[Rfam]
RNA sequence: GGGCGGUUGAUUCGUCCCAAACCGGGAGCCGGAGGUUAAACGGAACAAAAAACCGGGCGGGCUUACCGUCACGGGAUGGCGGAGC
Number, nucleotide and partner (000 for none) at each position: 001g022002g000003g000004c000005g018006g017007u000008u000009g000010a000011u000012u000013c000014g000015u000016c000017c006018c005019a000020a000021a000022c001023c000024g000025g000026g000027a000028g000029c000030c000031g000032g000033a000034g000035g000036u000037u000038a000039a000040a000041c000042g000043g000044a000045a000046c000047a000048a000049a000050a000051a000052a000053c074054c073055g072056g070057g069058c068059g067060g066061g000062c000063u000064u000065a000066c060067c059068g058069u057070c056071a000072c055073g054074g053075g000076a000077u000078g000079g000080c000081g000082g000083a000084g000085c000